Rfam assigns this 74-nucleotide sequence from Acidianus brierleyi to the family "Sulfolobus sRNA133". The family has 3 seed sequences and 27 matches in Rfam 15.1. Rfam's curators write: This RNA has structural homologues in 3 archaeon Sulfolobus genomes: tokodaii, acidocalarius and solfotaricus. By type it is a small RNA. NCBI's taxonomy places the organism under Archaea, Thermoproteota, Thermoprotei, Sulfolobales, Acidianus. A reference for the family is Tang et al. (2005), "Identification of novel non-coding RNAs as potential antisense regulators in the archaeon Sulfolobus solfataricus", Mol Microbiol. The base pairs follow the family's consensus structure. It scores 71 bits against the family's covariance model.
RNA sequence: GAUGGGUUCGAUGAGGCUCCCUAUGUCCUUGAAGGGAGUGGUUUAACUACCGCUCCCGUAGACGGCAUGGGGAG
Numbered sequence: 001g002a003u004g005g006g007u008u009c010g011a012u013g014a015g016g017c018u019c020c021c022u023a024u025g026u027c028c029u030u031g032a033a034g035g036g037a038g039u040g041g042u043u044u045a046a047c048u049a050c051c052g053c054u055c056c057c058g059u060a061g062a063c064g065g066c067a068u069g070g071g072g073a074g
Stems, first nucleotide, its partner, number of pairs: 017072004024067004029062002034057009